[Rfam]
RNA sequence: CAGUUAAAACGCUCGUAGUCUAUGAGAAGACCACGACUGAGGUACUGGGCUGCCUUCGGGGGCUAUGCCUUCCACUGUCCUCUCGAGGCUCAGUGGAACACCCAGGACUCAAGUCGCUGGCUUAAUAAUCGUGAACAAAUCAGUGCGAUCGAUGCGGGCCGUGCAUAAGUUGCUUGAAUGCCCAGCAUGAAAUUAUCCCUAGACCUAGUUGUCUGAUGUGACGAGAGACUGGUUGAAGCUCCUGGUAUUGCGUGCGCAGAGGUGAAAUUCCGAAAUUCGCGCAAGACGACCUGAAGCGAAGGCUGAUGAGCUCCCACGUCUCUGUCGAUCAGGAACGAAAGUCAGGGGAUCGAAGAUGAUUAGAUACCGUCGUAGUCCUGACCGUAAACCAUACCACCAGUUGGUUGGUUCGAAACACAAAGAGAUCACCCCAGAAAACAAGGGAAACCGAAAGGUCUCGGGUUCUGGGGGGAGUAUAGUCGCAAGGCCGAAACUUAAAGGAAU
Numbered sequence: 001c002a003g004u005u006a007a008a009a010c011g012c013u014c015g016u017a018g019u020c021u022a023u024g025a026g027a028a029g030a031c032c033a034c035g036a037c038u039g040a041g042g043u044a045c046u047g048g049g050c051u052g053c054c055u056u057c058g059g060g061g062g063c064u065a066u067g068c069c070u071u072c073c074a075c076u077g078u079c080c081u082c083u084c085g086a087g088g089c090u091c092a093g094u095g096g097a098a099c100a101c102c103c104a105g106g107a108c109u110c111a112a113g114u115c116g117c118u119g120g121c122u123u124a125a126u127a128a129u130c131g132u133g134a135a136c137a138a139a140u141c142a143g144u145g146c147g148a149u150c151g152a153u154g155c156g157g158g159c160c161g162u163g164c165a166u167a168a169g170u171u172g173c174u175u176g177a178a179u180g181c182c183c184a185g186c187a188u189g190a191a192a193u194u195a196u197c198c199c200u201a202g203a204c205c206u207a208g209u210u211g212u213c214u215g216a217u218g219u220g221a222c223g224a225g226a227g228a229c230u231g232g233u234u235g236a237a238g239c240u241c242c243u244g245g246u247a248u249u250g251c252g253u254g255c256g257c258a259g260a261g262g263u264g265a266a267a268u269u270c271c272g273a274a275a276u277u278c279g280c281g282c283a284a285g286a287c288g289a290c291c292u293g294a295a296g297c298g299a300a301g302g303c304u305g306a307u308g309a310g311c312u313c314c315c316a317c318g319u320c321u322c323u324g325u326c327g328a329u330c331a332g333g334a335a336c337g338a339a340a341g342u343c344a345g346g347g348g349a350u351c352g353a354a355g356a357u358g359a360u361u362a363g364a365u366a367c368c369g370u371c372g373u374a375g376u377c378c379u380g381a382c383c384g385u386a387a388a389c390c391a392u393a394c395c396a397c398c399a400g401u402u403g404g405u406u407g408g409u410u411c412g413a414a415a416c417a418c419a420a421a422g423a424g425a426u427c428a429c430c431c432c433a434g435a436a437a438a439c440a441a442g443g444g445a446a447a448c449c450g451a452a453a454g455g456u457c458u459c460g461g462g463u464u465c466u467g468g469g470g471g472g473a474g475u476a477u478a479g480u481c482g483c484a485a486g487g488c489c490g491a492a493a494c495u496u497a498a499a500g501g502a503a504u
Stems, first nucleotide, its partner, number of pairs: 001467003009464001011336001013334002018329003226323003230318002237312005243306001245287001248284007259270003293304001296303002341382006351375001355371004393463003396456003400439003405434004412427001414426001416424001442449002469496003479488003
This 504-nucleotide part of an RNA from Heteramoeba clara belongs to the Rfam family "Eukaryotic small subunit ribosomal RNA".
Its family is annotated with structural constituent of ribosome and ribosome in the Gene Ontology.
The base pairs follow the family's consensus structure, which is taken from published work.
On this family, see Cannone et al., BMC Bioinformatics 2002: "The comparative RNA web (CRW) site: an online database of comparative sequence and structure information for ribosomal, intron, and other RNAs".
Rfam's curators put it in the seed alignment.